RNA sequence: AUUUUAGGAUAAGUAUGUCCCCUAUAAUAUGUGGGACAUACUUAUAUUAAAA
Numbered sequence: 001a002u003u004u005u006a007g008g009a010u011a012a013g014u015a016u017g018u019c020c021c022c023u024a025u026a027a028u029a030u031g032u033g034g035g036a037c038a039u040a041c042u043u044a045u046a047u048u049a050a051a052a
Base pairs, nucleotide, nucleotide: 006048007047009045010044011043012042014040015039016038018036019035020034021033022031
Dot-bracket structure: .....((.((((.(((.(((((........).)))).))).)))).))....

Rfam assigns this 52-nucleotide RNA sequence from Cnephaeus nilssonii to the family "mir-1302 microRNA precursor family". Pairs were carried over by alignment from the consensus structure, which was predicted with WAR. On this family, see Morin et al., Genome Res 2008: "Application of massively parallel sequencing to microRNA profiling and discovery in human embryonic stem cells". Its family is annotated with RISC complex and miRNA-mediated post-transcriptional gene silencing in the Gene Ontology.